[Rfam]
Nucleotides: 076
Base pairs, nucleotide, nucleotide: 003074004073006071007070008069009068010067011066012065013064014063015062016061017060018059019058023052024051025050026049027048028047030045031044
Number, partner (000 for none) and nucleotide at each position: 001000g002000u003074u004073c005000u006071c007070u008069a009068u010067u011066a012065g013064u014063u015062u016061u017060g018059c019058a020000u021000a022000g023052u024051u025050g026049u027048a028047c029000u030045g031044c032000a033000a034000g035000a036000a037000g038000a039000a040000u041000u042000g043000a044031g045030u046000u047028g048027u049026g050025c051024a052023a053000a054000u055000c056000u057000a058019u059018g060017c061016a062015a063014a064013a065012c066011u067010g068009a069008u070007g071006g072000u073004g074003g075000c076000c

Rfam assigns this 76-nucleotide RNA from Dissostichus mawsoni to the family "mir-19 microRNA precursor family".
The family's consensus secondary structure was predicted with RNAalifold.
The family has 106 seed sequences and 2,337 matches in Rfam 15.1.